[Rfam]
RNA sequence: AUAUCCCGGAAAGCCUCUAAAGAGGCACCGAAGGAGCAAUUCUUCUAUAAAGAAGAAUCUCUCAGGUAAACAGACGGGGGAAUAAAA
Number, nucleotide and partner (000 for none) at each position: 001a000002u081003a000004u079005c078006c077007c076008g075009g000010a000011a000012a000013g000014c025015c024016u023017c022018u000019a000020a000021a000022g017023a016024g015025g014026c000027a067028c066029c065030g063031a062032a000033g000034g061035a060036g059037c000038a000039a000040u054041u053042c052043u051044u000045c000046u000047a000048u000049a000050a000051a043052g042053a041054a040055g000056a000057a000058u000059c036060u035061c034062u031063c030064a000065g029066g028067u027068a000069a000070a000071c000072a000073g000074a000075c008076g007077g006078g005079g004080g000081a002082a000083u000084a000085a000086a000087a000
Glycine riboswitch aptamer: an 87-nucleotide sequence from Caldanaerobacter subterraneus. NCBI's taxonomy places the organism under Bacteria, Bacillota, Thermoanaerobacterales, Caldanaerobacter subterraneus, Caldanaerobacter subterraneus subsp. tengcongensis. Rfam's curators put it in the seed alignment.